A member of the RNA family "A. fumigatus sRNA Afu_254" from Penicillium griseofulvum, 144 nucleotides long.
Rfam 15.1 lists 185 matches to the family in 142 species.
Taxonomically the source falls in Penicillium (Eukaryota, Ascomycota, saccharomyceta, Pezizomycotina).
On this family, see Jochl et al., Nucleic Acids Res 2008: "Small ncRNA transcriptome analysis from Aspergillus fumigatus suggests a novel mechanism for regulation of protein synthesis".
RNA sequence: AUCCAACUCAAACACUACUCUCCAACUUUUUCAAGGUUCUUUACCUGCACCUAUAUUCAUCAUGUCUCCUUGCACCUGCAACUGCUGCUCCGGAGAGUGCAACUCCUGCUCUUGCGCUAGCUGCAAGGUAUGUUAUUGAUUGCA
Numbered sequence: 001a002u003c004c005a006a007c008u009c010a011a012a013c014a015c016u017a018c019u020c021u022c023c024a025a026c027u028u029u030u031u032c033a034a035g036g037u038u039c040u041u042u043a044c045c046u047g048c049a050c051c052u053a054u055a056u057u058c059a060u061c062a063u064g065u066c067u068c069c070u071u072g073c074a075c076c077u078g079c080a081a082c083u084g085c086u087g088c089u090c091c092g093g094a095g096a097g098u099g100c101a102a103c104u105c106c107u108g109c110u111c112u113u114g115c116g117c118u119a120g121c122u123g124c125a126a127g128g129u130a131u132g133u134u135a136u137u138g139a140u141u142g143c144a
Base pairs, nucleotide, nucleotide: 071095073093078088079087080086099124100123101122108115109114
Dot-bracket structure: ......................................................................(.(....(((.....)))....).)...(((......((....))......)))....................